[Rfam]
Shown here is a 215-nucleotide RNA sequence, a member of the family "IS605-orfB-I RNA". The family's consensus secondary structure is taken from published work.
RNA sequence: GUCGUAUAAAGAUGUAUAGAUGCGAGACAAUCUAGCAUUUCCCUUUACGGCAUUGUAGUAAUGUUAGAAAUUCAAACAAAAGUAAUUGUUGUAUGGUUAAAAAUUGAAACAAUUUGAGUUUGAAUGGAAGAGGUUAACCGUAUGACCUUGUGUUGAAAAACACUAAAAAUAAUCUUGAAAUAGUAAUGCUAAAUUUUAUUUUAAGUUACGGUUCG
Numbered sequence: 001g002u003c004g005u006a007u008a009a010a011g012a013u014g015u016a017u018a019g020a021u022g023c024g025a026g027a028c029a030a031u032c033u034a035g036c037a038u039u040u041c042c043c044u045u046u047a048c049g050g051c052a053u054u055g056u057a058g059u060a061a062u063g064u065u066a067g068a069a070a071u072u073c074a075a076a077c078a079a080a081a082g083u084a085a086u087u088g089u090u091g092u093a094u095g096g097u098u099a100a101a102a103a104u105u106g107a108a109a110c111a112a113u114u115u116g117a118g119u120u121u122g123a124a125u126g127g128a129a130g131a132g133g134u135u136a137a138c139c140g141u142a143u144g145a146c147c148u149u150g151u152g153u154u155g156a157a158a159a160a161c162a163c164u165a166a167a168a169a170u171a172a173u174c175u176u177g178a179a180a181u182a183g184u185a186a187u188g189c190u191a192a193a194u195u196u197u198a199u200u201u202u203a204a205g206u207u208a209c210g211g212u213u214c215g
Base pairs, nucleotide, nucleotide: 001051002050003049004048005047006046008044010040011039012038013037014036015035017034018033019032020031021030022028070125071124072123073122074121075120076119077118084114085113086112087111088110089109090108095105096104098102131148132147133146134145135144137212138211139210140209141208142207143169150163151162152161153160154159174205175204176203177202178201179200180199181198182197183196185195
Rfam classes the family as a small RNA.